[Rfam]
TPP riboswitch aptamer (THI element): a 126-nucleotide RNA sequence from Ancylobacter sp. TS-1. Taxonomically the source falls in Ancylobacter (Bacteria, Pseudomonadati, Pseudomonadota, Hyphomicrobiales). Rfam links the family to the GO term thiamine pyrophosphate binding. Vitamin B(1) in its active form thiamin pyrophosphate (TPP) is an essential coenzyme that is synthesised by coupling of pyrimidine and thiazole moieties in bacteria.
Nucleotides: 126
Base pairs, nucleotide, nucleotide: 006115007114008113009112011076012075013074014073016070017031018030019029020028021027040068041067042066082107083106084105088101089100090099091098
Number, partner (000 for none) and nucleotide at each position: 001000c002000c003000u004000c005000g006115u007114u008113c009112c010000a011076a012075g013074g014073g015000g016070a017031g018030c019029c020028c021027c022000g023000c024000u025000a026000g027021g028020g029019g030018g031017c032000u033000g034000a035000g036000a037000g038000a039000g040068c041067g042066c043000c044000g045000g046000c047000a048000c049000g050000c051000c052000g053000a054000g055000a056000g057000g058000c059000g060000g061000g062000c063000a064000a065000c066042g067041c068040g069000a070016u071000g072000a073014c074013c075012c076011u077000u078000c079000g080000a081000a082107c083106c084105u085000g086000a087000u088101c089100c090099g091098g092000g093000u094000c095000a096000u097000g098091c099090c100089g101088g102000c103000g104000a105084a106083g107082g108000g109000a110000u111000c112009g113008g114007a115006a116000c117000c118000g119000a120000a121000u122000g123000g124000c125000g126000u